The record is a 131-nucleotide sequence from Coffea canephora, which matches "Small nucleolar RNA U19" in Rfam. Its family is annotated with nucleolus and RNA processing in the Gene Ontology.

RNA sequence: AUUUGGCUUAGUUAAGAGGCAUAAAAUGAAAUGUUGAUUCAAAAUAUCUUAAGGUAUUUUGGGUCUUUGAAGGCCUUUUGAGGGGACUCUUUGCACUCUAUAAAGUGUCCUCCAAGCAGCCUUAGACAUUC
Number, nucleotide and partner (000 for none) at each position: 001a000002u000003u000004u021005g020006g000007c018008u017009u016010a000011g000012u000013u000014a000015a000016g009017a008018g007019g000020c005021a004022u000023a000024a000025a000026a000027u000028g000029a000030a000031a000032u000033g000034u000035u000036g065037a064038u063039u062040c061041a000042a000043a000044a057045u056046a055047u054048c053049u000050u000051a000052a000053g048054g047055u046056a045057u044058u000059u000060u000061g040062g039063g038064u037065c036066u000067u000068u125069g000070a123071a122072g121073g120074c119075c000076u000077u116078u115079u114080g113081a000082g112083g111084g110085g109086a108087c107088u000089c105090u104091u000092u000093g000094c000095a000096c000097u000098c000099u000100a000101u000102a000103a000104a090105g089106u000107g087108u086109c085110c084111u083112c082113c080114a079115a078116g077117c000118a000119g074120c073121c072122u071123u070124a000125g068126a000127c000128a000129u000130u000131c000